[Rfam]
RNA sequence: GGCGGGGAGGGUUCCUGGCACCGUGAUUUGGUGGAUAAACAGAAAUGAAAAUCACAUUGCCAGGGAUUUCCACUCCUGC
Numbered sequence: 001g002g003c004g005g006g007g008a009g010g011g012u013u014c015c016u017g018g019c020a021c022c023g024u025g026a027u028u029u030g031g032u033g034g035a036u037a038a039a040c041a042g043a044a045a046u047g048a049a050a051a052u053c054a055c056a057u058u059g060c061c062a063g064g065g066a067u068u069u070c071c072a073c074u075c076c077u078g079c
Stems, first nucleotide, its partner, number of pairs: 001079001004076003009071002011067010023055007
mir-23 microRNA precursor family: a 79-nucleotide RNA sequence from Danio rerio.
Rfam links the family to the GO terms gene silencing by miRNA and RISC complex.